RNA sequence: GAUCACGGUGAUGACUCCAUGAAAUUCAAGCUCAACAGACCGGAAUGCAGUGCUUUCUCUCUUUCAUGAGAUUGCUUUGCGUGUCGACCACCCCGCUGACCUGAGUGAUC
Number, nucleotide and partner (000 for none) at each position: 001g110002a109003u108004c107005a106006c105007g000008g000009u000010g000011a000012u000013g000014a000015c000016u000017c000018c000019a000020u000021g000022a000023a000024a000025u000026u000027c000028a000029a000030g000031c000032u000033c000034a000035a000036c000037a000038g000039a000040c000041c000042g000043g000044a000045a000046u000047g000048c000049a000050g000051u000052g000053c000054u000055u000056u000057c000058u000059c000060u000061c000062u000063u000064u000065c000066a000067u000068g000069a000070g000071a000072u000073u000074g000075c000076u000077u000078u000079g000080c000081g000082u000083g000084u000085c000086g000087a000088c000089c000090a000091c000092c000093c000094c000095g000096c000097u000098g000099a000100c000101c000102u000103g000104a000105g006106u005107g004108a003109u002110c001